The family of this 74-nucleotide RNA sequence from Humibacter ginsenosidimutans is "Fluoride riboswitch aptamer (crcB RNA motif)". A search with the family's covariance model found it, with a score of 39 bits.

RNA sequence: UGAUCGAACGGCGAUGGAUCCCGCCGGGGCGCCGAUGCCUGAACCGCACCAACGCUGAUGGUUCCUACCCCCUU
Numbered sequence: 001u002g003a004u005c006g007a008a009c010g011g012c013g014a015u016g017g018a019u020c021c022c023g024c025c026g027g028g029g030c031g032c033c034g035a036u037g038c039c040u041g042a043a044c045c046g047c048a049c050c051a052a053c054g055c056u057g058a059u060g061g062u063u064c065c066u067a068c069c070c071c072c073u074u
Stems, first nucleotide, its partner, number of pairs: 010025004016065003020061002046055002